[Rfam]
RNA sequence: CCGCUGGCUUUAUAAGCAUGUGAUGGCUCAGUGCACAUGUAUAUAAGCAGUGGACGAGAACAGUGCCAGUGCUAUGCCUUCGGUACUAGUGGUGUGUAACCUGUCUGCUAGUACUAUUCUCAAUCUCUGGAACAAAG
Numbered sequence: 001c002c003g004c005u006g007g008c009u010u011u012a013u014a015a016g017c018a019u020g021u022g023a024u025g026g027c028u029c030a031g032u033g034c035a036c037a038u039g040u041a042u043a044u045a046a047g048c049a050g051u052g053g054a055c056g057a058g059a060a061c062a063g064u065g066c067c068a069g070u071g072c073u074a075u076g077c078c079u080u081c082g083g084u085a086c087u088a089g090u091g092g093u094g095u096g097u098a099a100c101c102u103g104u105c106u107g108c109u110a111g112u113a114c115u116a117u118u119c120u121c122a123a124u125c126u127c128u129g130g131a132a133c134a135a136a137g
Stems, first nucleotide, its partner, number of pairs: 001053005017039006067129003071125001086111007
This 137-nucleotide RNA from Triplophysa tibetana belongs to the Rfam family "Small nucleolar RNA SNORA57". The family's consensus secondary structure was predicted with PFOLD. From the family's description: U99 belongs to the H/ACA class of snoRNAs which are thought to guide the sites of modification of uridines to pseudouridines, the target for this family is unknown. Rfam classes the family as an H/ACA-box small nucleolar RNA. Its family is annotated with RNA processing and nucleolus in the Gene Ontology.